[Rfam]
RNA sequence: GUUGCAGAGUCAUUUUGGCAUUCUGUCCACCUCCGUUAAUUCUUUUCUUUUUUGCCCACUUGAAAUCUUAGAUUUGGAGGUGGCUAGCAUGCCUAACAGGCUCUGUGAA
Numbered sequence: 001g002u003u004g005c006a007g008a009g010u011c012a013u014u015u016u017g018g019c020a021u022u023c024u025g026u027c028c029a030c031c032u033c034c035g036u037u038a039a040u041u042c043u044u045u046u047c048u049u050u051u052u053u054g055c056c057c058a059c060u061u062g063a064a065a066u067c068u069u070a071g072a073u074u075u076g077g078a079g080g081u082g083g084c085u086a087g088c089a090u091g092c093c094u095a096a097c098a099g100g101c102u103c104u105g106u107g108a109a
Stems, first nucleotide, its partner, number of pairs: 011099001015095001017093004024086002027083008